[Rfam]
RNA sequence: UGUCGAAGCUCCAUCUACAAAUGGAUAAGACUUCGGUCUUAGUGUAUAUGAAUCGUUGAAGUUGAAGGAGCAAUACCCACCCUCUUGAUAGAACAAGAAAUUCGGUAUUGCUCCUUCAU
Numbered sequence: 001u002g003u004c005g006a007a008g009c010u011c012c013a014u015c016u017a018c019a020a021a022u023g024g025a026u027a028a029g030a031c032u033u034c035g036g037u038c039u040u041a042g043u044g045u046a047u048a049u050g051a052a053u054c055g056u057u058g059a060a061g062u063u064g065a066a067g068g069a070g071c072a073a074u075a076c077c078c079a080c081c082c083u084c085u086u087g088a089u090a091g092a093a094c095a096a097g098a099a100a101u102u103c104g105g106u107a108u109u110g111c112u113c114c115u116u117c118a119u
Stems, first nucleotide, its partner, number of pairs: 010025005064117013079102001083098004